[Rfam]
RNA sequence: ACGAACCGAUACCGGAGGCGAUCCAGGAAGGAUCGGGGGAUGACCCGCACUGGCGGGCGGCUGCUCAGAGAGCACAACCGAUACCCCCACAACACCUCAACAGCGACCCGCCCCGGCGCUCAGGUAUCGUUCC
Numbered sequence: 001a002c003g004a005a006c007c008g009a010u011a012c013c014g015g016a017g018g019c020g021a022u023c024c025a026g027g028a029a030g031g032a033u034c035g036g037g038g039g040a041u042g043a044c045c046c047g048c049a050c051u052g053g054c055g056g057g058c059g060g061c062u063g064c065u066c067a068g069a070g071a072g073c074a075c076a077a078c079c080g081a082u083a084c085c086c087c088c089a090c091a092a093c094a095c096c097u098c099a100a101c102a103g104c105g106a107c108c109c110g111c112c113c114c115g116g117c118g119c120u121c122a123g124g125u126a127u128c129g130u131u132c133c
Stems, first nucleotide, its partner, number of pairs: 003132003007129007019035006036088004044057005058080003062074005
A member of the RNA family "EFASI RNA", 133 nucleotides long.
The sequence is in the family's curated seed alignment.
By type it is a small RNA.